The family of this 134-nucleotide RNA sequence from Ornithinibacillus bavariensis is "Ribosomal protein L10 leader". Rfam classes the family as a cis-regulatory leader. From the family's description: This family is a putative r-protein leader autoregulatory structure found in B. subtilis and other low-GC Gram-positive bacteria.
RNA sequence: UAAAUUGAAUACGUUGUACCGUAGACAGCAGGUGCGAGCAAUCGCUUAAUGUCCUGCCGAGGUGAUUGAAACAAAUAGAUGAAUUUGUUUUUUAGGAGCCUUCAUGUCUACAUGGGGGCUCUUUUUAUGAAUGA
Number, nucleotide and partner (000 for none) at each position: 001u000002a000003a000004a000005u000006u000007g000008a000009a000010u000011a000012c000013g000014u000015u000016g000017u000018a000019c000020c000021g000022u000023a000024g000025a000026c000027a000028g057029c056030a055031g054032g053033u000034g045035c044036g043037a000038g000039c000040a000041a000042u000043c036044g035045c034046u000047u000048a000049a000050u000051g000052u000053c032054c031055u030056g029057c028058c000059g000060a000061g000062g000063u000064g000065a000066u000067u000068g000069a000070a000071a000072c000073a000074a000075a000076u000077a000078g000079a000080u000081g000082a000083a000084u000085u000086u000087g000088u000089u000090u000091u000092u000093u000094a000095g000096g000097a000098g119099c118100c117101u116102u115103c114104a113105u112106g111107u000108c000109u000110a000111c106112a105113u104114g103115g102116g101117g100118g099119c098120u000121c000122u000123u000124u000125u000126u000127a000128u000129g000130a000131a000132u000133g000134a000